[Rfam]
Nucleotides: 107
Stems, first nucleotide, its partner, number of pairs: 003105006013041001015040003021031003025079001027077002042071004047067002050062003075099001080096006
Number, partner (000 for none) and nucleotide at each position: 001000a002000a003105c004104u005103c006102a007101u008100c009000g010000c011000g012000a013041g014000u015040g016039g017038u018000g019000g020000a021031g022030g023029g024000a025079c026000u027077g028076g029023c030022c031021c032000u033000a034000u035000g036000a037000a038017g039016c040015c041013c042071g043070g044069c045068a046000a047067c048066c049000g050062g051061u052060g053000g054000u055000u056000u057000a058000a059000c060052c061051a062050c063000a064000a065000u066048g067047g068045u069044g070043c071042c072000a073000a074000a075099u076028c077027c078000u079025g080096c081095g082094g083093u084092a085091a086000u087000u088000u089000g090000u091085u092084u093083a094082c095081c096080g097000a098000g099075a100008g101007a102006u103005g104004a105003g106000a107000g
SAM riboswitch aptamer (S box leader): a 107-nucleotide RNA from Caloramator mitchellensis.